[Rfam]
Nucleotides: 136
Stems, first nucleotide, its partner, number of pairs: 002055005009047002012044004016039008067129004073123005083117001085115002088111002092106002
Number, partner (000 for none) and nucleotide at each position: 001000u002055g003054c004053c005052u006051u007000u008000g009047u010046g011000u012044u013043g014042c015041c016039c017038a018037u019036u020035c021034a022033u023032u024000u025000u026000c027000c028000a029000u030000u031000a032023g033022a034021u035020g036019a037018a038017u039016g040000a041015g042014g043013u044012g045000u046010c047009a048000a049000c050000u051006a052005a053004g054003g055002c056000a057000c058000a059000c060000a061000a062000u063000a064000a065000a066000u067129c068128u069127u070126g071000a072000a073123a074122u075121a076120g077119c078000c079000a080000c081000a082000u083117u084000u085115a086114a087000g088111a089110g090000a091000g092106a093105a094000c095000a096000c097000c098000u099000u100000a101000a102000u103000u104000g105093u106092u107000u108000c109000u110089c111088u112000u113000g114086u115085u116000u117083g118000c119077g120076c121075u122074a123073u124000g125000a126070c127069a128068a129067g130000a131000a132000c133000a134000g135000c136000a